[Rfam]
RNA sequence: UCAUCCUCGCGUUCACUGCCUGCUUUUAUGUGUACAUAUUAAUCAUAAGGCACGCGGUGAAUGCCAAGAGAG
Numbered sequence: 001u002c003a004u005c006c007u008c009g010c011g012u013u014c015a016c017u018g019c020c021u022g023c024u025u026u027u028a029u030g031u032g033u034a035c036a037u038a039u040u041a042a043u044c045a046u047a048a049g050g051c052a053c054g055c056g057g058u059g060a061a062u063g064c065c066a067a068g069a070g071a072g
Stems, first nucleotide, its partner, number of pairs: 004069002009064008018055002023050003027047004

The family of this 72-nucleotide RNA from Parnassius apollo is "mir-124 microRNA precursor family". A reference for the family is Lagos-Quintana et al. (2002), "Identification of tissue-specific microRNAs from mouse", Curr Biol. It scores 56 bits against the family's covariance model. The family's consensus secondary structure was predicted with PFOLD. Gene Ontology terms of the family: RISC complex and miRNA-mediated post-transcriptional gene silencing.